[Rfam]
A member of the RNA family "cspA thermoregulator" from Edwardsiella hoshinae, 433 nucleotides long. The base pairs follow the family's consensus structure, which is taken from published work. The literature on the family includes a 2010 paper in Mol Cell by Giuliodori et al., "The cspA mRNA is a thermosensor that modulates translation of the cold-shock protein CspA". Rfam classes the family as an RNA thermoregulator. The family has 15 seed sequences and 2,094 matches in Rfam 15.1. Taxonomically the source falls in Edwardsiella (Bacteria, Pseudomonadati, Pseudomonadota, Hafniaceae).
RNA sequence: GCGAGGUACAGUUCUGUCUAUGUGUGGCAUUUUCAGUAAAGAAGUUCCCAGUAAAAACGUUUGCGUUGCUUACUACUUCUCUGCCGAACCUUAUCUUAGUGCCUCAAGCAGUAACGACUCUAGUUUGUCUGUGUAACGCCUGCGGGCGGUUUAAUCAAUAGUAAGGAAAUACGUAAGAUGGCUAAGAUCAAAGGUCAAGUGAAGUGGUUCAACGAAGCGAAGGGUUUCGGUUUCAUCACCCCGGCUGACGGCAGCAAGGACGUGUUCGUUCACUUCUCUGCAAUCCAGGGCAACGGUUUCAAAACUCUGGCUGAAGGUCAGCACGUAGAGUUCGAAAUCCAGGAUGGCCAGAAAGGCCCGUCUGCUGUUAACGUAGUCGCUAUCUAACUCUACGUUAGUGGUUAGAAAACCCGCCGCCGGCGGGUUUUUUUAU
Numbered sequence: 001g002c003g004a005g006g007u008a009c010a011g012u013u014c015u016g017u018c019u020a021u022g023u024g025u026g027g028c029a030u031u032u033u034c035a036g037u038a039a040a041g042a043a044g045u046u047c048c049c050a051g052u053a054a055a056a057a058c059g060u061u062u063g064c065g066u067u068g069c070u071u072a073c074u075a076c077u078u079c080u081c082u083g084c085c086g087a088a089c090c091u092u093a094u095c096u097u098a099g100u101g102c103c104u105c106a107a108g109c110a111g112u113a114a115c116g117a118c119u120c121u122a123g124u125u126u127g128u129c130u131g132u133g134u135a136a137c138g139c140c141u142g143c144g145g146g147c148g149g150u151u152u153a154a155u156c157a158a159u160a161g162u163a164a165g166g167a168a169a170u171a172c173g174u175a176a177g178a179u180g181g182c183u184a185a186g187a188u189c190a191a192a193g194g195u196c197a198a199g200u201g202a203a204g205u206g207g208u209u210c211a212a213c214g215a216a217g218c219g220a221a222g223g224g225u226u227u228c229g230g231u232u233u234c235a236u237c238a239c240c241c242c243g244g245c246u247g248a249c250g251g252c253a254g255c256a257a258g259g260a261c262g263u264g265u266u267c268g269u270u271c272a273c274u275u276c277u278c279u280g281c282a283a284u285c286c287a288g289g290g291c292a293a294c295g296g297u298u299u300c301a302a303a304a305c306u307c308u309g310g311c312u313g314a315a316g317g318u319c320a321g322c323a324c325g326u327a328g329a330g331u332u333c334g335a336a337a338u339c340c341a342g343g344a345u346g347g348c349c350a351g352a353a354a355g356g357c358c359c360g361u362c363u364g365c366u367g368u369u370a371a372c373g374u375a376g377u378c379g380c381u382a383u384c385u386a387a388c389u390c391u392a393c394g395u396u397a398g399u400g401g402u403u404a405g406a407a408a409a410c411c412c413g414c415c416g417c418c419g420g421c422g423g424g425u426u427u428u429u430u431u432a433u
Stems, first nucleotide, its partner, number of pairs: 001012002003009001021243002026240002041233001044232001046230002048224002052221001058219004064214005072208003078180001080178003085173002094166005100160001106126004138147003182194001183190001247339002259267002270328001272326002275323001278321003281317001285310005345360003363382002365379001367377002387399003404430012
Dot-bracket structure: (((.....).))........((...((.............(..(.((((..(.....((((..(((((...(((...(.(((..((.......(((((.(.....((((.............))))...........(((....)))............).))))).....))..))).).((......)...)...........))).))))).)))).).))....)).)).....)).))...((..........((.....))..(.((.(..((((...(((((................)))))......).))).).)).).........)).....(((..........)))..(((.((.......)).).))....(((.......)))....((((((((((((...))))))))))))...